[Rfam]
RNA sequence: UACCACAUCAAAGUAGAUUGGGAAACUCAUCAAUGACAAUCGAAAUACCGAGACAAGCUUAGCCGACCAAUGGCGGGCCCCAUCCUUUCGGGGAGGCUUAAUUAGCCCAGGCGGAUUACAAAGGUAGGCGAGCACUCAAAUCCUGUCUUCCGGAGUUUCAUCGCAUCCUUUGAUGUGGCUCUUAUA
Numbered sequence: 001u002a003c004c005a006c007a008u009c010a011a012a013g014u015a016g017a018u019u020g021g022g023a024a025a026c027u028c029a030u031c032a033a034u035g036a037c038a039a040u041c042g043a044a045a046u047a048c049c050g051a052g053a054c055a056a057g058c059u060u061a062g063c064c065g066a067c068c069a070a071u072g073g074c075g076g077g078c079c080c081c082a083u084c085c086u087u088u089c090g091g092g093g094a095g096g097c098u099u100a101a102u103u104a105g106c107c108c109a110g111g112c113g114g115a116u117u118a119c120a121a122a123g124g125u126a127g128g129c130g131a132g133c134a135c136u137c138a139a140a141u142c143c144u145g146u147c148u149u150c151c152g153g154a155g156u157u158u159c160a161u162c163g164c165a166u167c168c169u170u171u172g173a174u175g176u177g178g179c180u181c182u183u184a185u186a
Stems, first nucleotide, its partner, number of pairs: 057133003062129003066125003071120002078114002081111001083092003095107003
RNA: Bacteroidales-1 6S-Bacteroidales RNA suggested
Organism: Bacteroides sp. CAG:927